[Rfam]
RNA sequence: CGGAGCGUGAACUCCCACGAGUUCUGGGUGCCCGCGAGCACCUGGUCACCGAGGUAGUCGCCGCCGGCCAGCACAUCCAGCACCACCUCGUCGCCGUACUCGCCGCGGCCCAGCUUGCGCAGCUUGCCGUGGACCACCAGCACGACCUCGUCGGCGACGUGGCCCUGCUCUACCACCGCGUCGCCGGCCGCGACGUCCCGCUGCUCGAACCGGUCCGCCAGUGCGCUGAGCACCGGCUCGUCGUCGAACUCGCGCAGCGAAGGGAAGUCACACAGCUCGUGCGGGAUAACCCGGACCUGCGAUCCAGCGCUGGUGAAGGUCACCCGACCAUCGCCCACUGUGUACGCCAGGCGCCGGUUAACGCGGUAGGCGCCACCGCAGACCUGCACCCAGGGCAGCAUCCGCAGCAGCCACCGGGAGGUGAUCUCCUGCAUCUGCGGGACCGACUUGGUCGUGGUCGUCAGGUUGCGCGCCGCCGCCGUACCGAGGCUCAGCUGGGCAUGGCCGU
Numbered sequence: 001c002g003g004a005g006c007g008u009g010a011a012c013u014c015c016c017a018c019g020a021g022u023u024c025u026g027g028g029u030g031c032c033c034g035c036g037a038g039c040a041c042c043u044g045g046u047c048a049c050c051g052a053g054g055u056a057g058u059c060g061c062c063g064c065c066g067g068c069c070a071g072c073a074c075a076u077c078c079a080g081c082a083c084c085a086c087c088u089c090g091u092c093g094c095c096g097u098a099c100u101c102g103c104c105g106c107g108g109c110c111c112a113g114c115u116u117g118c119g120c121a122g123c124u125u126g127c128c129g130u131g132g133a134c135c136a137c138c139a140g141c142a143c144g145a146c147c148u149c150g151u152c153g154g155c156g157a158c159g160u161g162g163c164c165c166u167g168c169u170c171u172a173c174c175a176c177c178g179c180g181u182c183g184c185c186g187g188c189c190g191c192g193a194c195g196u197c198c199c200g201c202u203g204c205u206c207g208a209a210c211c212g213g214u215c216c217g218c219c220a221g222u223g224c225g226c227u228g229a230g231c232a233c234c235g236g237c238u239c240g241u242c243g244u245c246g247a248a249c250u251c252g253c254g255c256a257g258c259g260a261a262g263g264g265a266a267g268u269c270a271c272a273c274a275g276c277u278c279g280u281g282c283g284g285g286a287u288a289a290c291c292c293g294g295a296c297c298u299g300c301g302a303u304c305c306a307g308c309g310c311u312g313g314u315g316a317a318g319g320u321c322a323c324c325c326g327a328c329c330a331u332c333g334c335c336c337a338c339u340g341u342g343u344a345c346g347c348c349a350g351g352c353g354c355c356g357g358u359u360a361a362c363g364c365g366g367u368a369g370g371c372g373c374c375a376c377c378g379c380a381g382a383c384c385u386g387c388a389c390c391c392a393g394g395g396c397a398g399c400a401u402c403c404g405c406a407g408c409a410g411c412c413a414c415c416g417g418g419a420g421g422u423g424a425u426c427u428c429c430u431g432c433a434u435c436u437g438c439g440g441g442a443c444c445g446a447c448u449u450g451g452u453c454g455u456g457g458u459c460g461u462c463a464g465g466u467u468g469c470g471c472g473c474c475g476c477c478g479c480c481g482u483a484c485c486g487a488g489g490c491u492c493a494g495c496u497g498g499g500c501a502u503g504g505c506c507g508u
Stems, first nucleotide, its partner, number of pairs: 007389003011385001015381001021325001025322003029318001032315001035313001037311003041307001045305001046302002049299001051297001054233002058229003062225003066110003077102001079100002082097002086093001117222002122218002127212001129210002132206002135203002138200001140198001143195002149192002154184007161173001234294001237293001240290002243287003249283001251281004256277003262269001329342003351379003356374002362370001391431005397425001399423003403418001405416001407415001437476004443470001446467001447465006477507002480503003484499002487496002